The family of this 187-nucleotide sequence from Targowskia paracuniculus is "GcvB RNA".

RNA sequence: CCGUACUUAGAUGGAUAGUGAUAGUUAAUUUUUAGCUAUUUCAGAUUUUAAGUAUGAUGUUGUGUUUGCAUAUUGGUCUAGGAAACUAGACUUCGAGUAACCCAAGUCAAACGUAAGUUACUCAUUUCACUUCCUGUAUUUUUAACCGUUUUGGUUUAUAAGCCCCCAAUUUGGGGGCUUUUUUUAU
Numbered sequence: 001c002c003g004u005a006c007u008u009a010g011a012u013g014g015a016u017a018g019u020g021a022u023a024g025u026u027a028a029u030u031u032u033u034a035g036c037u038a039u040u041u042c043a044g045a046u047u048u049u050a051a052g053u054a055u056g057a058u059g060u061u062g063u064g065u066u067u068g069c070a071u072a073u074u075g076g077u078c079u080a081g082g083a084a085a086c087u088a089g090a091c092u093u094c095g096a097g098u099a100a101c102c103c104a105a106g107u108c109a110a111a112c113g114u115a116a117g118u119u120a121c122u123c124a125u126u127u128c129a130c131u132u133c134c135u136g137u138a139u140u141u142u143u144a145a146c147c148g149u150u151u152u153g154g155u156u157u158a159u160a161a162g163c164c165c166c167c168a169a170u171u172u173g174g175g176g177g178c179u180u181u182u183u184u185u186a187u
Stems, first nucleotide, its partner, number of pairs: 009048004016043001021039008075092007096122006141158001160180008
It is annotated as a non-coding RNA gene.
Rfam describes the family as follows. The gcvB gene encodes a small untranslated RNA involved in expression of the dipeptide and oligopeptide transport systems in Escherichia coli. Included several unknown homologues in alignment (Bateman A pers obs). It base-pairs with SorC. This interaction triggers the degradation of GcvB by RNase E, alleviating the GcvB-mediated mRNA repression of other amino acid-related transport and metabolic genes.
The family's consensus secondary structure is taken from published work.